This 65-nucleotide RNA from Ramphastos sulfuratus belongs to the Rfam family "Selenocysteine insertion sequence 1". Rfam's curators write: The incorporation of selenocysteine into a protein sequence is directed by an in-frame UGA codon (usually a stop codon) within the coding region of the mRNA. Selenoprotein mRNAs contain a conserved secondary structure in the 3' UTR that is required for the distinction of UGA stop from UGA selenocysteine. The selenocysteine insertion sequence (SECIS) is around 60 nt in length and adopts a hairpin structure which is sufficiently well-defined and conserved to act as a computational screen for selenoprotein genes. The family's RNA type in Rfam is cis-regulatory element. It scores 41 bits against the family's covariance model. Its family is annotated with selenocysteine incorporation in the Gene Ontology. Lineage of the source: Eukaryota > Eumetazoa > Chordata > Neognathae > Ramphastos.
RNA sequence: GCGUGCUUAUGAAGAUCGUUAAUAAAAGAGUAAUUAACUCAGUUAACGUUCAGAUGCCCUCACGC
Numbered sequence: 001g002c003g004u005g006c007u008u009a010u011g012a013a014g015a016u017c018g019u020u021a022a023u024a025a026a027a028g029a030g031u032a033a034u035u036a037a038c039u040c041a042g043u044u045a046a047c048g049u050u051c052a053g054a055u056g057c058c059c060u061c062a063c064g065c
Stems, first nucleotide, its partner, number of pairs: 001065005014051002017048007029039003